[Rfam]
RNA: ffh sRNA
RNA sequence: CGGCGCGGGGAUCGCCCCCCACCAGCGUGUUACGCCCGUGGGGGCGAAACCA
Numbered sequence: 001c002g003g004c005g006c007g008g009g010g011a012u013c014g015c016c017c018c019c020c021a022c023c024a025g026c027g028u029g030u031u032a033c034g035c036c037c038g039u040g041g042g043g044g045c046g047a048a049a050c051c052a
Base pairs, nucleotide, nucleotide: 016044017043018042019041020040021039022038025035026034027033028032